Background
Rfam assigns this 51-nucleotide RNA sequence from zeta proteobacterium SCGC AB-137-C09 to the family "Zeta-pan RNA". It is annotated as a small RNA. NCBI's taxonomy places the organism under Bacteria, Pseudomonadati, Pseudomonadota, Candidatius Mariprofundia. It is one of the family's seed sequences.

[Rfam]
RNA sequence: CAUCCUGAAAGACGGUACUGCUGCGGCAGACUGAAGCGGAAGGGAACUAUG
Numbered sequence: 001c002a003u004c005c006u007g008a009a010a011g012a013c014g015g016u017a018c019u020g021c022u023g024c025g026g027c028a029g030a031c032u033g034a035a036g037c038g039g040a041a042g043g044g045a046a047c048u049a050u051g
Stems, first nucleotide, its partner, number of pairs: 013033004018029003